Rfam assigns this 82-nucleotide sequence from Limnochorda pilosa to the family "Group II catalytic intron D1-D4-1". Pairs were carried over by alignment from the consensus structure. About the family: Group II introns are found in rRNA, tRNA and mRNA of organelles in fungi, plants and protists, and also in mRNA in bacteria. Rfam links the family to the GO term Group II intron splicing.
RNA sequence: CUACCGGCGUCGAGAGGGCGGCGUGAUGGGUCGGCAGGGGUCAGCAGAGGGCACAGUAGGUCCCGCGACCGGACCGAUGGCC
Numbered sequence: 001c002u003a004c005c006g007g008c009g010u011c012g013a014g015a016g017g018g019c020g021g022c023g024u025g026a027u028g029g030g031u032c033g034g035c036a037g038g039g040g041u042c043a044g045c046a047g048a049g050g051g052c053a054c055a056g057u058a059g060g061u062c063c064c065g066c067g068a069c070c071g072g073a074c075c076g077a078u079g080g081c082c
Stems, first nucleotide, its partner, number of pairs: 001028001005023002008020004041048002050082003059075005